[Rfam]
RNA sequence: UUGCAAUGAUGACUUUCUUAGGACACCUUUGGAUUACCCAUGAAAAUAAAUGUGAAUUAGGCUGAGCAAC
Number, nucleotide and partner (000 for none) at each position: 001u069002u068003g067004c066005a000006a000007u000008g000009a000010u000011g000012a000013c000014u000015u000016u000017c000018u000019u000020a000021g000022g000023a000024c000025a000026c000027c000028u000029u000030u000031g000032g000033a000034u000035u000036a000037c000038c000039c000040a000041u000042g000043a000044a000045a000046a000047u000048a000049a000050a000051u000052g000053u000054g000055a000056a000057u000058u000059a000060g000061g000062c000063u000064g000065a000066g004067c003068a002069a001070c000

Small nucleolar RNA SNORD58: a 70-nucleotide RNA sequence from Salvelinus namaycush. A reference for the family is Galardi et al. (2002), "Purified box C/D snoRNPs are able to reproduce site-specific 2'-O-methylation of target RNA in vitro", Mol Cell Biol. Rfam's curators write: snoRNA U58 is found in introns 1, 3 and 6 of the ribosomal protein RPL17 gene in humans. Lineage of the source: Eukaryota > Vertebrata > Teleostomi > Teleostei > Salvelinus. Rfam classes the family as a C/D-box small nucleolar RNA.